The record is a 96-nucleotide RNA sequence from Leptobrachium leishanense, which matches "mir-283 microRNA precursor family" in Rfam. Lineage of the source: Eukaryota > Bilateria > Dipnotetrapodomorpha > Tetrapoda > Leptobrachium. A reference for the family is Stark et al. (2007), "Systematic discovery and characterization of fly microRNAs using 12 Drosophila genomes", Genome Res.
RNA sequence: AUACCAAGAAGAAACAAAACAUCAGCCAGAAUUUUGAAUGUUAUGUAACGUCACAUAACAUUCAAAAUUCUGGCUGAUGUUUUGUUUCUUCUUGGU
Number, nucleotide and partner (000 for none) at each position: 001a000002u000003a000004c000005c000006a000007a000008g000009a000010a000011g088012a087013a086014a085015c084016a083017a000018a000019a080020c079021a078022u077023c076024a075025g074026c073027c072028a071029g070030a000031a068032u067033u066034u065035u064036g063037a062038a061039u000040g000041u000042u000043a000044u000045g000046u000047a000048a000049c000050g000051u000052c000053a000054c000055a000056u000057a000058a000059c000060a000061u038062u037063c036064a035065a034066a033067a032068u031069u000070c029071u028072g027073g026074c025075u024076g023077a022078u021079g020080u019081u000082u000083u016084g015085u014086u013087u012088c011089u000090u000091c000092u000093u000094g000095g000096u000